[Rfam]
RNA sequence: CGUCCCGCAGAGGGGCCGUGGAAAGGCUCCGACCAGCUGCGCGCCAACCCGCAGUUCACGGGUGGUUCGGAUGACGAAGCGGCGGGCAACGGCAUCGGAUGCCCGCAAGAACGUCAG
Numbered sequence: 001c002g003u004c005c006c007g008c009a010g011a012g013g014g015g016c017c018g019u020g021g022a023a024a025g026g027c028u029c030c031g032a033c034c035a036g037c038u039g040c041g042c043g044c045c046a047a048c049c050c051g052c053a054g055u056u057c058a059c060g061g062g063u064g065g066u067u068c069g070g071a072u073g074a075c076g077a078a079g080c081g082g083c084g085g086g087c088a089a090c091g092g093c094a095u096c097g098g099a100u101g102c103c104c105g106c107a108a109g110a111a112c113g114u115c116a117g
Base pairs, nucleotide, nucleotide: 001079003077004076012042015040016039018037019036025034026033043066044065045064048062049061050060082106083105084104085103086102087101088100090098091096
RNA: SAM (S-adenosyl methionine) riboswitch aptamer
Organism: Kocuria dechangensis